[Rfam]
Clostridiales-1 RNA: a 173-nucleotide RNA from Butyrivibrio sp. INlla14. The match comes from Rfam's covariance-model search (106 bits). The family's consensus secondary structure is taken from published work.

RNA sequence: AGCGAUAAAGAGACGAGAAGUUUCAAGCAUGCAUGCUCGCAUGCAUAUGCUUGAAACCUCGAGGAUCGAACGUACAUGAGGAAAAAAGAUAUGCGAGUGUAGCGAGCAUAGCGAUUUCCGAAUGUACGUAGCAUGGCGAGAACGCGAAGCGUGGAGCCAUGCGCCAUAUCGCG
Number, nucleotide and partner (000 for none) at each position: 001a000002g172003c171004g170005a169006u168007a167008a000009a000010g000011a066012g000013a000014c063015g000016a000017g060018a059019a000020g057021u056022u055023u054024c053025a052026a051027g050028c049029a048030u047031g044032c043033a042034u041035g040036c000037u000038c000039g000040c035041a034042u033043g032044c031045a000046u000047a030048u029049g028050c027051u026052u025053g024054a023055a022056a021057c020058c000059u018060c017061g000062a000063g014064g000065a000066u011067c000068g000069a000070a129071c128072g127073u126074a125075c124076a123077u122078g000079a000080g119081g118082a117083a116084a000085a000086a000087a000088g112089a000090u110091a109092u108093g107094c106095g000096a000097g000098u000099g000100u000101a000102g000103c000104g000105a000106g094107c093108a092109u091110a090111g000112c088113g000114a000115u000116u083117u082118c081119c080120g000121a000122a077123u076124g075125u074126a073127c072128g071129u070130a000131g162132c161133a160134u159135g158136g157137c156138g000139a000140g000141a000142a152143c151144g150145c149146g000147a000148a000149g145150c144151g143152u142153g000154g000155a000156g137157c136158c135159a134160u133161g132162c131163g000164c000165c000166a000167u007168a006169u005170c004171g003172c002173g000